[Rfam]
RNA sequence: UGCGCGCCUAGGUCCGGCCGGCCGAAGACGAGAACUCCGAUCCCUUCUCGCUGGCGCGCCUCUCUACAGGGG
Dot-bracket structure: .(((((((..((((.....)))).....(((((...[[.......)))))..)))))))...........]]
This 72-nucleotide sequence from Ralstonia phage RPZH6 belongs to the Rfam family "int-alpA RNA". By type it is a small RNA. Lineage of the source: Viruses > Duplodnaviria > Uroviricota > Caudoviricetes > Gervaisevirus. Pairs were carried over by alignment from the consensus structure, which is taken from published work.